[Rfam]
RNA sequence: UGUAUCAGAUGAUGAAAUCUUGAGACAAUCUUACAUCUUAGGACACCUUCUGACACAUUGCUAUUACCCUGCUUUGUGAGUGAGAAGGCAACUCCGAUCUGAUGAUACU
Numbered sequence: 001u002g003u004a005u006c007a008g009a010u011g012a013u014g015a016a017a018u019c020u021u022g023a024g025a026c027a028a029u030c031u032u033a034c035a036u037c038u039u040a041g042g043a044c045a046c047c048u049u050c051u052g053a054c055a056c057a058u059u060g061c062u063a064u065u066a067c068c069c070u071g072c073u074u075u076g077u078g079a080g081u082g083a084g085a086a087g088g089c090a091a092c093u094c095c096g097a098u099c100u101g102a103u104g105a106u107a108c109u
Stems, first nucleotide, its partner, number of pairs: 002108006051057002
RNA: Small nucleolar RNA snoR31/Z110/Z27